This 67-nucleotide RNA sequence from Aphidius gifuensis belongs to the Rfam family "tRNA". Rfam 15.1 lists 5,335,975 matches to the family in 14,413 species. It scores 46 bits against the family's covariance model. Rfam classes the family as a transfer RNA. Lineage of the source: Eukaryota > Protostomia > Panarthropoda > Eumetabola > Aphidius.
RNA sequence: CCCUGUGGUCUAGUGGUCAAGGCGUUUGCCCGGAAAGCAAAAGACUCGGGUUCGAUUCCCGGCGGGG
Numbered sequence: 001c002c003c004u005g006u007g008g009u010c011u012a013g014u015g016g017u018c019a020a021g022g023c024g025u026u027u028g029c030c031c032g033g034a035a036a037g038c039a040a041a042a043g044a045c046u047c048g049g050g051u052u053c054g055a056u057u058c059c060c061g062g063c064g065g066g067g
Stems, first nucleotide, its partner, number of pairs: 001067005008023004025041005046062005